[Rfam]
RNA: Bacterial RNase P class A
Organism: Amazonocrinis nigriterrae
RNA sequence: AGAGUAGGCGCAGGCGGUUGCAGAUCAGUCAUAUAACUGGUUUGAGGAAAGUCCGGGCUCCCGAAAGACCAAACUUGCUGGAUAACGUCCAGUGCGAGCGAUCGUGAGGAUAGUGCCACAGAAAGAUACCGCCAGGAAUAGGGAAUAGGGACUGGGUACUGGGGACUGGGGAAGAAAUUUCCCAAUCCCCGAUCCCUAAUCCCCAAUCCCCGAUCCCUGGUAAGGGUGCAAAGGUGUGGUAAGAGCGCACCAGCAGCGUCGAGAGGCGCUGGCUCGGUAAACCCCGGUUGGGAGCAAGGCGAAACAGGAACUACGGUUGGUCUUUUACCAGUUCCUAAAAUAGAGCCGCUAGAGGCGUAUGGUAACAGGCGUCCCAGAUAGAUAACUGCCCUCGCAAGAGAACAGAACCCGGCUUAUGUCCUGCUCUCGAA
Numbered sequence: 001a002g003a004g005u006a007g008g009c010g011c012a013g014g015c016g017g018u019u020g021c022a023g024a025u026c027a028g029u030c031a032u033a034u035a036a037c038u039g040g041u042u043u044g045a046g047g048a049a050a051g052u053c054c055g056g057g058c059u060c061c062c063g064a065a066a067g068a069c070c071a072a073a074c075u076u077g078c079u080g081g082a083u084a085a086c087g088u089c090c091a092g093u094g095c096g097a098g099c100g101a102u103c104g105u106g107a108g109g110a111u112a113g114u115g116c117c118a119c120a121g122a123a124a125g126a127u128a129c130c131g132c133c134a135g136g137a138a139u140a141g142g143g144a145a146u147a148g149g150g151a152c153u154g155g156g157u158a159c160u161g162g163g164g165a166c167u168g169g170g171g172a173a174g175a176a177a178u179u180u181c182c183c184a185a186u187c188c189c190c191g192a193u194c195c196c197u198a199a200u201c202c203c204c205a206a207u208c209c210c211c212g213a214u215c216c217c218u219g220g221u222a223a224g225g226g227u228g229c230a231a232a233g234g235u236g237u238g239g240u241a242a243g244a245g246c247g248c249a250c251c252a253g254c255a256g257c258g259u260c261g262a263g264a265g266g267c268g269c270u271g272g273c274u275c276g277g278u279a280a281a282c283c284c285c286g287g288u289u290g291g292g293a294g295c296a297a298g299g300c301g302a303a304a305c306a307g308g309a310a311c312u313a314c315g316g317u318u319g320g321u322c323u324u325u326u327a328c329c330a331g332u333u334c335c336u337a338a339a340a341u342a343g344a345g346c347c348g349c350u351a352g353a354g355g356c357g358u359a360u361g362g363u364a365a366c367a368g369g370c371g372u373c374c375c376a377g378a379u380a381g382a383u384a385a386c387u388g389c390c391c392u393c394g395c396a397a398g399a400g401a402a403c404a405g406a407a408c409c410c411g412g413c414u415u416a417u418g419u420c421c422u423g424c425u426c427u428c429g430a431a
Base pairs, nucleotide, nucleotide: 001427002426003425004424005423006422007421008420010419011418012417013390014389015388016387017386018385019384021044022043023042024041025040026039027038028037029036049415050414051413053412054411055410056409057408058294059293060292061291067324068323072289073288074287076286077285078092079091080090081089082088093107094105095104096103097102108284109283113282114281115278116277117276129225130224131221132220133219134218135217136216138214139213233251234250235249236248237247238246253273254271255270256269257268258267259266260265298347299346300345307335308334309333310332311331312330315329316328317327319325354373355372356371357370358369360367361366